Rfam assigns this 88-nucleotide RNA from Yoonia rosea to the family "Glycine riboswitch aptamer". Rfam links the family to the GO term glycine biosynthetic process. Taxonomically the source falls in Yoonia (Bacteria, Pseudomonadota, Alphaproteobacteria, Rhodobacterales). This family represents the bacterial glycine riboswitch. Glycine riboswitches usually consist of two metabolite-binding aptamers domains with similar structures in tandem. The aptamers cooperatively bind glycine to regulate the expression of downstream genes. In Bacillus subtilis, this riboswitch is found upstream of the gcvT operon which controls glycine degradation.
Nucleotides: 088
Stems, first nucleotide, its partner, number of pairs: 006083008020033004035068003038064002042062003049056001
Number, partner (000 for none) and nucleotide at each position: 001000a002000c003000a004000c005000a006083c007082c008081a009080a010079c011078c012077g013076g014000g015000a016000g017000a018000g019000u020033c021032c022031g023030g024000u025000u026000u027000g028000g029000u030023c031022u032021g033020g034000c035068g036067c037066c038064g039063a040000a041000g042062g043061a044060g045000c046000a047000a048000c049056c050000g051000c052000c053000c054000c055000g056049g057000u058000c059000a060044c061043u062042c063039u064038c065000a066037g067036g068035c069000a070000a071000a072000a073000g074000g075000a076013c077012c078011g079010g080009u081008u082007g083006g084000g085000g086000u087000g088000c